[Rfam]
RNA sequence: UAUUGUUACAACUCAUUCCCGAAAGGAUUCAUAGUAGUGUGAAGAUGCCUUGUAACCAAAUAAAAAAUAUGGGGGAAUAUAUAAUU
Numbered sequence: 001u002a003u004u005g006u007u008a009c010a011a012c013u014c015a016u017u018c019c020c021g022a023a024a025g026g027a028u029u030c031a032u033a034g035u036a037g038u039g040u041g042a043a044g045a046u047g048c049c050u051u052g053u054a055a056c057c058a059a060a061u062a063a064a065a066a067a068u069a070u071g072g073g074g075g076a077a078u079a080u081a082u083a084a085u086u
Stems, first nucleotide, its partner, number of pairs: 016077005023051004028043005056072002

This 86-nucleotide RNA sequence from Ligilactobacillus ubinensis belongs to the Rfam family "SAM-III riboswitch aptamer (SMK box)". The source organism's lineage runs through Bacteria, Bacillati, Bacillota, Lactobacillales and Ligilactobacillus.